Rfam assigns this 60-nucleotide RNA sequence from Bifidobacterium ramosum to the family "msiK RNA". The family has 120 seed sequences and 1,374 matches in Rfam 15.1. The family's RNA type in Rfam is cis-regulatory element. Lineage of the source: Bacteria > Bacillati > Actinomycetota > Bifidobacteriales > Bifidobacterium. It scores 55 bits against the family's covariance model.
[Rfam]
RNA sequence: ACCAAAAAUCCCUUUACAACGGAUCGUGAGACACGUACCUGUCUCUGAAAGGAUGAACUA
Numbered sequence: 001a002c003c004a005a006a007a008a009u010c011c012c013u014u015u016a017c018a019a020c021g022g023a024u025c026g027u028g029a030g031a032c033a034c035g036u037a038c039c040u041g042u043c044u045c046u047g048a049a050a051g052g053a054u055g056a057a058c059u060a
Base pairs, nucleotide, nucleotide: 010052011051013049014048015047016046028045029044030043031042032041033040